A member of the RNA family "Lysine riboswitch aptamer" from Turicibacter sp. H121, 175 nucleotides long. The match comes from Rfam's covariance-model search (112 bits). The family's consensus secondary structure is taken from published work. The source organism's lineage runs through Bacteria, Bacillati, Erysipelotrichia, Turicibacteraceae and Turicibacter.
RNA sequence: GUUUUAGAUAGAGGUGCGGUAAUUAAGAGUACUAUCGAAGAGUGAAGAUGUUGACGCGAUAGGAAAGGGAUUCUCGCCGAAGUCUAUAACUGAUACUUUAAGGUUAUAGAGCUGGUGUUAAGUAGAAGAUAUUUAACAUUGUCACAAUUUAUUAUUGUGGAGGGCUAUCAUUCCG
Numbered sequence: 001g002u003u004u005u006a007g008a009u010a011g012a013g014g015u016g017c018g019g020u021a022a023u024u025a026a027g028a029g030u031a032c033u034a035u036c037g038a039a040g041a042g043u044g045a046a047g048a049u050g051u052u053g054a055c056g057c058g059a060u061a062g063g064a065a066a067g068g069g070a071u072u073c074u075c076g077c078c079g080a081a082g083u084c085u086a087u088a089a090c091u092g093a094u095a096c097u098u099u100a101a102g103g104u105u106a107u108a109g110a111g112c113u114g115g116u117g118u119u120a121a122g123u124a125g126a127a128g129a130u131a132u133u134u135a136a137c138a139u140u141g142u143c144a145c146a147a148u149u150u151a152u153u154a155u156u157g158u159g160g161a162g163g164g165c166u167a168u169c170a171u172u173c174c175g
Stems, first nucleotide, its partner, number of pairs: 007169005016077004021072004032062006081113003084109008114140011142160007